[Rfam]
RNA sequence: UGGCCUGAAAUGAUGUUAUGACUUCAUGUCUCUUCUCUGAGAUGUGUCAUGGAGACAGACAGAUCUUUCUGAUCAGGCUU
Numbered sequence: 001u002g003g004c005c006u007g008a009a010a011u012g013a014u015g016u017u018a019u020g021a022c023u024u025c026a027u028g029u030c031u032c033u034u035c036u037c038u039g040a041g042a043u044g045u046g047u048c049a050u051g052g053a054g055a056c057a058g059a060c061a062g063a064u065c066u067u068u069c070u071g072a073u074c075a076g077g078c079u080u
Base pairs, nucleotide, nucleotide: 002079003078004077005076
RNA: Small nucleolar RNA SNORD111